The record is a 514-nucleotide part of an RNA from Erpetoichthys calabaricus, which matches "Eukaryotic large subunit ribosomal RNA" in Rfam. Taxonomically the source falls in Erpetoichthys (Eukaryota, Deuterostomia, Chordata, Actinopterygii).

[Rfam]
RNA sequence: CCCUCCGAAGUUUCCCUCAGGAUAGCUGGCACUCGUUGGCACGCAGUUUUAUCUGGUAAAGCGAAUGAUAAGAGGCCUUGGGGCCGAAACGAUCUCAACCUAUUCCCAAACUUUAAAUGGGUAAGAAGCCCGGCUCGCUGGCAUGGAGCCGCGGCGUGGAAUGCCGAGUGCCUAGUGGGCCACUUUUGGUAAGCAGAACUGGCGCUGCGGGAUGAACCGAACGCUGGGUUAAGGCGCCCGAUGCCGACGCUCAUCAGAUCCCAGAAAAGGUGUUGGUUGAUACGGACAGCAGGACGGUGGCCAUGGAAGUCGGAAACCCGCUAAGGAGUGUGUAACAACUCACCUGCCGAAUCAACCAGCCCUGAAAAUGGAUGGCGCUGGAGCGUCGGGCCCAUACCCGGCCGUCGCCGGCACUGGUGGCCGCGAGGGCUAAGCCGCGACGAGUAGGAGGGCCGCCGCGGUGCGCGCCGAAGCCUAGGGCGAGGGCCCGGGUGGAGCCGCCGCGGGUGCAGAU
Number, nucleotide and partner (000 for none) at each position: 001c452002c451003c450004u449005c448006c447007g000008a000009a000010g000011u024012u000013u022014c021015c020016c000017u000018c000019a000020g015021g014022a013023u000024a011025g000026c000027u000028g172029g171030c170031a169032c168033u167034c000035g000036u000037u000038g000039g000040c000041a000042c000043g000044c000045a000046g000047u126048u125049u124050u123051a122052u121053c120054u119055g000056g000057u000058a000059a114060a112061g111062c000063g000064a000065a000066u108067g107068a000069u000070a104071a103072g000073a101074g100075g099076c000077c000078u098079u097080g096081g095082g094083g093084c000085c091086g000087a000088a000089a000090c000091g085092a000093u083094c082095u081096c080097a079098a078099c075100c074101u073102a000103u071104u070105c000106c000107c067108a066109a000110a000111c061112u060113u000114u059115a000116a000117a000118u000119g054120g053121g052122u051123a050124a049125g048126a047127a000128g155129c154130c153131c151132g150133g149134c148135u147136c146137g000138c000139u000140g000141g000142c000143a000144u000145g000146g136147a135148g134149c133150c132151g131152c000153g130154g129155c128156g000157u000158g000159g000160a000161a000162u000163g000164c000165c000166g000167a033168g032169u031170g030171c029172c028173u000174a000175g000176u000177g000178g000179g203180c202181c201182a200183c000184u198185u197186u196187u195188g194189g000190u000191a000192a000193g000194c188195a187196g186197a185198a184199c000200u182201g181202g180203c179204g000205c000206u000207g000208c219209g218210g217211g000212a000213u000214g000215a000216a000217c210218c209219g208220a000221a000222c000223g402224c401225u400226g399227g398228g000229u396230u000231a000232a000233g392234g391235c390236g000237c000238c000239c000240g000241a000242u389243g000244c388245c000246g000247a000248c385249g384250c383251u000252c000253a000254u000255c000256a000257g000258a000259u000260c000261c000262c000263a000264g000265a000266a000267a000268a363269g362270g361271u000272g360273u359274u358275g357276g356277u355278u354279g353280a352281u351282a000283c000284g000285g000286a000287c000288a000289g347290c346291a345292g344293g343294a000295c320296g319297g318298u000299g000300g000301c313302c312303a000304u000305g000306g000307a000308a000309g000310u000311c000312g302313g301314a000315a000316a000317c000318c297319c296320g295321c325322u000323a000324a000325g321326g341327a000328g000329u000330g339331u338332g000333u000334a000335a000336c000337a000338a331339c330340u000341c326342a000343c293344c292345u291346g290347c289348c000349g000350a000351a281352u280353c279354a278355a277356c276357c275358a274359g273360c272361c270362c269363u268364g000365a000366a000367a000368a000369u000370g000371g000372a000373u000374g000375g000376c000377g000378c000379u000380g000381g000382a000383g250384c249385g248386u000387c000388g244389g242390g235391c234392c233393c000394a000395u000396a229397c000398c227399c226400g225401g224402c223403c442404g441405u440406c439407g438408c437409c000410g436411g435412c434413a000414c000415u000416g000417g000418u000419g000420g000421c000422c000423g000424c000425g000426a000427g000428g000429g000430c000431u000432a000433a000434g412435c411436c410437g408438c407439g406440a405441c404442g403443a000444g000445u000446a000447g006448g005449a004450g003451g002452g001453c000454c509455g000456c506457c505458g504459c503460g502461g501462u500463g499464c000465g498466c497467g000468c000469c000470g000471a000472a000473g493474c492475c000476u000477a000478g000479g488480g487481c486482g000483a000484g000485g000486g481487c480488c479489c000490g000491g000492g474493u473494g000495g000496a000497g466498c465499c463500g462501c461502c460503g459504c458505g457506g456507g000508u000509g454510c000511a000512g000513a000514u000